Rfam assigns this 377-nucleotide sequence from Comamonas suwonensis to the family "transfer-messenger RNA".

RNA sequence: GGGGCUGUCCUGGUUUCGACGUGGGUUCGGGACCGGUGCGGUGCAUGUCGAGCUUGAGUGACGCUCGUAAAUCUCCAUUCAAAAAACUAACUGCAAACGACGAACGUUUCGCACUCGCCGCUUAAUCCGGUGAGCCUUACAACAGCACGCUAGUGGGCUGGGCAAGGGGGUAGCAAUAUCUCCAGGCUGUAAGGGAAUUUUCAUUAGCUGGCUGGGUAUCGGGCUUCUUGAUACUUGGCGAGAUUUUAGGAAGCUGGCUAACCAAGUAGCGUGUGCCUGCGGGGCUUGGGUGGCGAGAUUUAAAUCAGAGCACUAAACAUGUAGAUCUGUCCGGCGAAGGCUUGCGGACGCGGGUUCAAUUCCCGCCAGCUCCACCA
Numbered sequence: 001g002g003g004g005c006u007g008u009c010c011u012g013g014u015u016u017c018g019a020c021g022u023g024g025g026u027u028c029g030g031g032a033c034c035g036g037u038g039c040g041g042u043g044c045a046u047g048u049c050g051a052g053c054u055u056g057a058g059u060g061a062c063g064c065u066c067g068u069a070a071a072u073c074u075c076c077a078u079u080c081a082a083a084a085a086a087c088u089a090a091c092u093g094c095a096a097a098c099g100a101c102g103a104a105c106g107u108u109u110c111g112c113a114c115u116c117g118c119c120g121c122u123u124a125a126u127c128c129g130g131u132g133a134g135c136c137u138u139a140c141a142a143c144a145g146c147a148c149g150c151u152a153g154u155g156g157g158c159u160g161g162g163c164a165a166g167g168g169g170g171u172a173g174c175a176a177u178a179u180c181u182c183c184a185g186g187c188u189g190u191a192a193g194g195g196a197a198u199u200u201u202c203a204u205u206a207g208c209u210g211g212c213u214g215g216g217u218a219u220c221g222g223g224c225u226u227c228u229u230g231a232u233a234c235u236u237g238g239c240g241a242g243a244u245u246u247u248a249g250g251a252a253g254c255u256g257g258c259u260a261a262c263c264a265a266g267u268a269g270c271g272u273g274u275g276c277c278u279g280c281g282g283g284g285c286u287u288g289g290g291u292g293g294c295g296a297g298a299u300u301u302a303a304a305u306c307a308g309a310g311c312a313c314u315a316a317a318c319a320u321g322u323a324g325a326u327c328u329g330u331c332c333g334g335c336g337a338a339g340g341c342u343u344g345c346g347g348a349c350g351c352g353g354g355u356u357c358a359a360u361u362c363c364c365g366c367c368a369g370c371u372c373c374a375c376c377a
Stems, first nucleotide, its partner, number of pairs: 001373007020346008033334004038330004044321005049067005054082007114134007136193006143160004149208007211239009222255006257294004262289005270281002273313004279305001350366005

Clan: tRNA clan.
Pairs were carried over by alignment from the consensus structure, which is taken from published work.
NCBI's taxonomy places the organism under Bacteria, Pseudomonadati, Betaproteobacteria, Comamonadaceae, Comamonas.
Its family is annotated with RNA catabolic process in the Gene Ontology.
By type it is a non-coding RNA gene.